[Rfam]
RNA: Bacterial large subunit ribosomal RNA, nucleotides 855 to 1294
Organism: Companilactobacillus allii
Nucleotides: 440
Stems, first nucleotide, its partner, number of pairs: 001381006011024005026131001027129006037122001038119002041116001043114004052105001053103002058099003062095004069088002071085005135160004140155002143152002165176003180353004185349003191343003200340001202339006219314002223311006230304003240298005246271003251265003272276001277292001281290002354371007382435001384432002387429007400419005406413002
Number, partner (000 for none) and nucleotide at each position: 001381c002380u003379c004378u005377c006376c007000g008000a009000a010000a011024u012023a013022g014021c015020u016000u017000u018000a019000g020015g021014g022013u023012u024011a025000g026131c027129c028128u029127c030126g031125g032124g033000g034000a035000a036000u037122a038119g039118g040000a041116u042000c043114a044113u045112g046111g047000a048000g049000g050000u051000a052105g053103a054102g055000c056000a057000c058099u059098g060097u061000u062095u063094g064093g065092a066000c067000u068000a069088g070087g071085g072084g073083c074082c075081c076000g077000u078000c079000u080000u081075g082074g083073g084072u085071u086000a087070c088069u089000g090000a091000a092065u093064u094063c095062a096000g097060a098059u099058a100000a101000a102054c103053u104000c105052c106000g107000a108000a109000u110000a111046c112045c113044a114043u115000u116041g117000a118039u119038c120000u121000a122037u123000a124032c125031c126030c127029g128028g129027g130000a131026g132000u133000c134000a135160g136159a137158c138157g139000a140155u141154g142000a143152g144151u145000g146000a147000u148000a149000a150000g151144a152143u153000c154141c155140a156000c157138c158137g159136u160135c161000g162000a163000a164000a165176g166175g167174g168000a169000a170000a171000c172000a173000g174167c175166c176165c177000a178000g179000a180353u181352c182351a183350c184000c185349a186348g187347u188000u189000a190000a191343g192342g193341u194000c195000c196000c197000a198000a199000a200340a201000u202339u203338c204337a205336u206335g207334c208000u209000a210000a211000g212000u213000g214000g215000a216000a217000a218000a219314g220313g221000a222000u223311g224310u225309g226308g227307a228306a229000a230304c231303g232302c233000a234000u235000a236000g237000a238000c239000a240298a241297c242296u243295a244294g245000g246271a247270u248269g249000u250000u251265g252264g253263c254000u255000u256000a257000g258000a259000a260000g261000c262000a263253g264252c265251c266000a267000u268000u269248c270247a271246u272276u273000c274000a275000a276272a277292g278000a279000g280000u281290g282289c283000g284000u285000a286000a287000u288000a289282g290281c291000u292277c293000a294244c295243u296242a297241g298240u299000c300000g301000a302232g303231u304230g305000a306228u307227u308226c309225u310224g311223c312000g313220c314219c315000g316000a317000a318000a319000a320000u321000g322000u323000a324000c325000c326000g327000g328000g329000g330000c331000u332000a333000a334207g335206c336205a337204u338203g339202a340200u341193a342192c343191c344000g345000a346000a347187a348186c349185u350183g351182u352181g353180g354371a355370u356369g357368c358367a359366u360365c361000g362000u363000a364000a365360g366359a367358u368357g369356c370355g371354u372000g373000g374000u375000a376006g377005g378004a379003g380002a381001g382435c383000g384432u385431u386000g387429u388428a389427a390426g391425a392424g393423c394000a395000u396000u397000g398000a399000a400419g401418c402417u403416g404415u405000a406413c407412c408000g409000u410000a411000a412407g413406g414000a415404g416403c417402a418401g419400u420000g421000g422000a423393g424392u425391u426390c427389u428388u429387a430000g431385a432384a433000g434000u435382g436000a437000g438000a439000a440000u